Source information
The family of this 86-nucleotide RNA sequence from Caloranaerobacter sp. TR13 is "c-di-GMP-I riboswitch aptamer".

[Rfam]
RNA sequence: CAUUGAUAAAGGCAAACCUAUCGAAAGGUGGGGACGCAAAGCUAUGGACCUAAGGUAUUAUUUACUAUGGUUGCCAGGCUGCCAAU
Numbered sequence: 001c002a003u004u005g006a007u008a009a010a011g012g013c014a015a016a017c018c019u020a021u022c023g024a025a026a027g028g029u030g031g032g033g034a035c036g037c038a039a040a041g042c043u044a045u046g047g048a049c050c051u052a053a054g055g056u057a058u059u060a061u062u063u064a065c066u067a068u069g070g071u072u073g074c075c076a077g078g079c080u081g082c083c084a085a086u
Stems, first nucleotide, its partner, number of pairs: 012037002017032006040080004045076003048071003055065003

The base pairs follow the family's consensus structure, which is taken from published work.